A member of the RNA family "Small nucleolar RNA SNORA3/SNORA45 family" from Pangasianodon hypophthalmus, 134 nucleotides long. It is annotated as an H/ACA-box small nucleolar RNA. NCBI's taxonomy places the organism under Eukaryota, Eumetazoa, Neopterygii, Teleostei, Pangasianodon. Pairs were carried over by alignment from the consensus structure, which was predicted with RNAalifold. The family has 6 seed sequences and 2,080 matches in Rfam 15.1. The members of this family belong to the H/ACA class of snoRNAs which are thought to guide the sites of modification of uridines to pseudouridines. This family includes mouse snoMBI-28 and human homologues ACA3 (SNORA3) and ACA3-2 (SNORA45). Both ACA3 and ACA3-2 share the same host gene. For this family Rfam cites "RNomics: an experimental approach that identifies 201 candidates for novel, small, non-messenger RNAs in mouse" (Huttenhofer et al., EMBO J, 2001). Gene Ontology terms of the family: RNA processing and nucleolus.
RNA sequence: AGCGAGACUAGAGUCACAUCCCGACGCUGUUCGUCGUCCUGGUGUGCUAUAGCUCUCGCAGAUUAAUCCUUCUCUGCUUAUUCAUUGGCUGCUGCUUCUCCAUCGCUCAGCCAAUCACCAGCUCAGAAACACUC
Number, nucleotide and partner (000 for none) at each position: 001a000002g059003c058004g057005a056006g055007a000008c052009u051010a000011g000012a048013g047014u000015c046016a045017c044018a043019u042020c041021c000022c000023g038024a037025c036026g035027c000028u000029g000030u000031u000032c000033g000034u000035c026036g025037u024038c023039c000040u000041g020042g019043u018044g017045u016046g015047c013048u012049a000050u000051a009052g008053c000054u000055c006056u005057c004058g003059c002060a000061g000062a000063u000064u000065a000066a000067u000068c000069c000070u000071u000072c126073u125074c000075u000076g122077c121078u120079u000080a000081u000082u000083c000084a115085u114086u113087g112088g111089c000090u109091g108092c000093u000094g106095c105096u000097u000098c000099u000100c000101c000102a000103u000104c000105g095106c094107u000108c091109a090110g000111c088112c087113a086114a085115u084116c000117a000118c000119c000120a078121g077122c076123u000124c000125a073126g072127a000128a000129a000130c000131a000132c000133u000134c000